Description:
This 98-nucleotide RNA from Eutrema salsugineum belongs to the Rfam family "Small nucleolar RNA R30/Z108". Pairs were carried over by alignment from the consensus structure, which was predicted with PFOLD. For this family Rfam cites "Experimental RNomics. Identification of 140 Candidates for Small Non-Messenger RNAs in the Plant Arabidopsis thaliana" (Marker et al., Curr Biol, 2002).
[Rfam]
RNA sequence: GGAGAUCACGAUGAGGAUACACAGCUCCCUCUUCUGAGUUCAGCUGAAGAGAACUGCUGGCAGAAUCGAACCUAAAAUCACUAGCCACCACUGAGUGA
Numbered sequence: 001g002g003a004g005a006u007c008a009c010g011a012u013g014a015g016g017a018u019a020c021a022c023a024g025c026u027c028c029c030u031c032u033u034c035u036g037a038g039u040u041c042a043g044c045u046g047a048a049g050a051g052a053a054c055u056g057c058u059g060g061c062a063g064a065a066u067c068g069a070a071c072c073u074a075a076a077a078u079c080a081c082u083a084g085c086c087a088c089c090a091c092u093g094a095g096u097g098a
Stems, first nucleotide, its partner, number of pairs: 006098004
The family's RNA type in Rfam is C/D-box small nucleolar RNA.
Clan: SNORD100 clan.
From the family's description: snoR30 is a C/D box small nucleolar RNA which acts as a methylation guide for 18S ribosomal RNA in plants.